Shown here is a 102-nucleotide sequence from Psychrobacillus sp. FJAT-21963, a member of the family "SAM riboswitch aptamer (S box leader)". It scores 87 bits against the family's covariance model.
RNA sequence: UUCUUAUCAAGAGAGGUGGAGGGACUUGGCCCUAGGAUACCUCAGCAACAGGCAUUUUUGCACUGUGCUAAUUCCAAAAGCUUUUAGGCUUGAAGAUAAGAA
Numbered sequence: 001u002u003c004u005u006a007u008c009a010a011g012a013g014a015g016g017u018g019g020a021g022g023g024a025c026u027u028g029g030c031c032c033u034a035g036g037a038u039a040c041c042u043c044a045g046c047a048a049c050a051g052g053c054a055u056u057u058u059u060g061c062a063c064u065g066u067g068c069u070a071a072u073u074c075c076a077a078a079a080g081c082u083u084u085u086a087g088g089c090u091u092g093a094a095g096a097u098a099a100g101a102a
Base pairs, nucleotide, nucleotide: 001102002101003100004099005098006097007096008095013043014042015041016040017039021032022031023030026077027076028075029074044069045068046067047066049065050064052061053060054059073094078091079090080089081088082087
Dot-bracket structure: ((((((((....(((((...(((..[[[[)))......)))))((((.((.(((....)))..))))))...(]]]](((((....)))))..)))))))))
Rfam describes the family as follows. The SAM riboswitch is found upstream of a number of genes which code for proteins involved in methionine or cysteine biosynthesis in Gram-positive bacteria. Taxonomically the source falls in Psychrobacillus (Bacteria, Bacillati, Bacillota, Caryophanales).